The record is a 139-nucleotide RNA from Paenibacillus sp. FSL H7-0737, which matches "c-di-AMP riboswitch aptamer (ydaO/yuaA leader)" in Rfam. Rfam links the family to the GO terms cyclic-di-AMP binding and regulation of gene expression. Lineage of the source: Bacteria > Bacillati > Bacillota > Caryophanales > Paenibacillus.
[Rfam]
RNA sequence: GUGCAUAAAACGCCGAAUUCCUUGCACCGGGAAGUGGGGGAACCAUAUUUUGGGUGAAUUGAUCUCGCUUUGCAGUGAUCAUAGGGGAACCUUCUACCGAAUCCUUAAGCUAACCUCACAGGCAUUGGAAGGGGUACAA
Numbered sequence: 001g002u003g004c005a006u007a008a009a010a011c012g013c014c015g016a017a018u019u020c021c022u023u024g025c026a027c028c029g030g031g032a033a034g035u036g037g038g039g040g041a042a043c044c045a046u047a048u049u050u051u052g053g054g055u056g057a058a059u060u061g062a063u064c065u066c067g068c069u070u071u072g073c074a075g076u077g078a079u080c081a082u083a084g085g086g087g088a089a090c091c092u093u094c095u096a097c098c099g100a101a102u103c104c105u106u107a108a109g110c111u112a113a114c115c116u117c118a119c120a121g122g123c124a125u126u127g128g129a130a131g132g133g134g135u136a137c138a139a
Base pairs, nucleotide, nucleotide: 012123013122014121018033019032020031021030022029034119035118036117037116038115039114045050052104053103054102060081061080062079063078084098085097087095
Rfam describes the family as follows. This family represents a conserved RNA structure found upstream of the ydaO and yuaA genes in Bacillus subtilis and related genes in other bacteria. The ydaO/yuaA element is thought to act as a genetic 'off' switch for the ydaO and yuaA genes in its native state. It is believed that the element may be triggered during osmotic shock leading to activation of ydaO, a predicted amino acid transporter gene, and members of the yuaA-yubG operon which code for KtrA and KtrB K+ transporters. A search with the family's covariance model found it, with a score of 72 bits.